Annotation: A member of the RNA family "FMN riboswitch aptamer (RFN element)" from Eubacterium sp. 14-2, 165 nucleotides long. Pairs were carried over by alignment from the consensus structure, which is taken from published work.

[Rfam]
RNA sequence: AGUGUUCUUCAGGGCAGGGUGACUUUUCAGAAUUUUCAGCAGGUAAUUUUGGAAAGAAUUCCCGACCGACGGUGAUACCCCUCAGAGGGCAAGUCCGUGAGCCGUAAGGCAUGAUUUGGUGAGAAUCCAAAACCGACAGUACAGUCUGGAUGGGAGAAGAAAACA
Dot-bracket structure: ..(.((((((......(((.........................................))).[[((((((....................[[))))....(.....).....(((((.......)))))]])).(((....]]))).......)))))).)..

From the family's description: The RFN element is a highly conserved domain that is found frequently in the 5'-untranslated regions of prokaryotic mRNAs that encode for flavin mononucleotide (FMN) biosynthesis and transport proteins. A reference for the family is Vitreschak et al. (2002), "Regulation of riboflavin biosynthesis and transport genes in bacteria by transcriptional and translational attenuation", Nucleic Acids Res.